[Rfam]
RNA sequence: AAUAGCGACACGGGGUGUCCCGACCAAGUCGGGGCUGAGACGACACCCGUAGAACCUGAUUCAGUUCACACUGGCGGAGGGAUGUUCGCGACGCGGCAG
Numbered sequence: 001a002a003u004a005g006c007g008a009c010a011c012g013g014g015g016u017g018u019c020c021c022g023a024c025c026a027a028g029u030c031g032g033g034g035c036u037g038a039g040a041c042g043a044c045a046c047c048c049g050u051a052g053a054a055c056c057u058g059a060u061u062c063a064g065u066u067c068a069c070a071c072u073g074g075c076g077g078a079g080g081g082a083u084g085u086u087c088g089c090g091a092c093g094c095g096g097c098a099g
Base pairs, nucleotide, nucleotide: 007086008085009084010083011049012048013047014046016043017035018034019033020032021031022030023029055080056079057078061074062073063072064071
RNA: TPP riboswitch aptamer (THI element)
Organism: Candidimonas nitroreducens